[Rfam]
RNA: Glycine riboswitch aptamer
RNA sequence: GAAGAACGCGCGGGAGAGAGCGGUGCGAAAGCGCCGUCGCCGAAGGAGCAACCGCCCCGGAAACUCUCAGGCAGAAGGACCGCGCGUUUUGA
Numbered sequence: 001g002a003a004g005a006a007c008g009c010g011c012g013g014g015a016g017a018g019a020g021c022g023g024u025g026c027g028a029a030a031g032c033g034c035c036g037u038c039g040c041c042g043a044a045g046g047a048g049c050a051a052c053c054g055c056c057c058c059g060g061a062a063a064c065u066c067u068c069a070g071g072c073a074g075a076a077g078g079a080c081c082g083c084g085c086g087u088u089u090u091g092a
Stems, first nucleotide, its partner, number of pairs: 006087008020037004039072003042068002046066003052060002